[Rfam]
RNA sequence: AUUAACUGAAGUAAAUAACACACAUACACCAACACCGGGUAUCGGGGUGUCUGACAAUCAGGUCGGAUCGAUACGUGGGGUGUAUGGAGGCCUAAC
Numbered sequence: 001a002u003u004a005a006c007u008g009a010a011g012u013a014a015a016u017a018a019c020a021c022a023c024a025u026a027c028a029c030c031a032a033c034a035c036c037g038g039g040u041a042u043c044g045g046g047g048u049g050u051c052u053g054a055c056a057a058u059c060a061g062g063u064c065g066g067a068u069c070g071a072u073a074c075g076u077g078g079g080g081u082g083u084a085u086g087g088a089g090g091c092c093u094a095a096c
Base pairs, nucleotide, nucleotide: 023086024085025084026083027082028081029080030079036077037076039074040073041072042071043070044069049068050067051066052065053064
t44 RNA: a 96-nucleotide sequence from Alteromonas halophila. By type it is a small RNA. The organism belongs to Alteromonas, within Bacteria. The match comes from Rfam's covariance-model search (74 bits).